Rfam assigns this 162-nucleotide sequence from Lolliginicoccus lacisalsi to the family "c-di-AMP riboswitch aptamer (ydaO/yuaA leader)".
The match comes from Rfam's covariance-model search (86 bits).
[Rfam]
RNA sequence: CUCUCAACACCGCUUAAUCGCGUGGCACCCGACCGCCACGCGAACCGGGGAACCACCGUUACGUGGGGUGAAUCCCACGCUGGACAGCGAUCCCGCGUGGGUAGGGCAAUCUUCCAGGCCCGAACCCGUCAGCUAACUCGGUCAGCGGAACCAGGAAGAAAC
Numbered sequence: 001c002u003c004u005c006a007a008c009a010c011c012g013c014u015u016a017a018u019c020g021c022g023u024g025g026c027a028c029c030c031g032a033c034c035g036c037c038a039c040g041c042g043a044a045c046c047g048g049g050g051a052a053c054c055a056c057c058g059u060u061a062c063g064u065g066g067g068g069u070g071a072a073u074c075c076c077a078c079g080c081u082g083g084a085c086a087g088c089g090a091u092c093c094c095g096c097g098u099g100g101g102u103a104g105g106g107c108a109a110u111c112u113u114c115c116a117g118g119c120c121c122g123a124a125c126c127c128g129u130c131a132g133c134u135a136a137c138u139c140g141g142u143c144a145g146c147g148g149a150a151c152c153a154g155g156a157a158g159a160a161a162c
Stems, first nucleotide, its partner, number of pairs: 011147004018043009044142006054065002066127003074101007104121004
Dot-bracket structure: ..........((((...(((((((((........)))))))))((((((....((........))(((.....(((((((..............)))))))..((((..........))))...))).........)))))).))))...............